[Rfam]
RNA sequence: GGGCUGGCUUUAGCUCAGUGGUUCCUUUGCAUCGAACUCUCAGUUUGCUAAACACUCUUGUCUGCGAGGGUGGUUCGAGACCCGCAGGUACUCUCCAGCUCUUUA
Numbered sequence: 001g002g003g004c005u006g007g008c009u010u011u012a013g014c015u016c017a018g019u020g021g022u023u024c025c026u027u028u029g030c031a032u033c034g035a036a037c038u039c040u041c042a043g044u045u046u047g048c049u050a051a052a053c054a055c056u057c058u059u060g061u062c063u064g065c066g067a068g069g070g071u072g073g074u075u076c077g078a079g080a081c082c083c084g085c086a087g088g089u090a091c092u093c094u095c096c097a098g099c100u101c102u103u104u105a
Stems, first nucleotide, its partner, number of pairs: 002100006013089003018085004026079004
Overview
This 105-nucleotide sequence from Molossus molossus belongs to the Rfam family "Vault RNA". It is annotated as a non-coding RNA gene. The organism belongs to Molossus, within Eukaryota. The family has 73 seed sequences and 2,873 matches in Rfam 15.1. The family's consensus secondary structure is taken from published work.